Shown here is a 76-nucleotide RNA from Lymphocryptovirus macacinegamma4, a member of the family "mir-BART21 microRNA precursor family". The sequence is in the family's curated seed alignment.
RNA sequence: GGGCUGGGUAUUCACUAGUGCUGGCACCUAAGAUAACUAGAAUUGUUAGUUGUCUGCACUGGAGAGUAUUCGGUUU
Numbered sequence: 001g002g003g004c005u006g007g008g009u010a011u012u013c014a015c016u017a018g019u020g021c022u023g024g025c026a027c028c029u030a031a032g033a034u035a036a037c038u039a040g041a042a043u044u045g046u047u048a049g050u051u052g053u054c055u056g057c058a059c060u061g062g063a064g065a066g067u068a069u070u071c072g073g074u075u076u
Stems, first nucleotide, its partner, number of pairs: 001076010015062006024053003028049003

Pairs were carried over by alignment from the consensus structure, which was predicted with RNAalifold.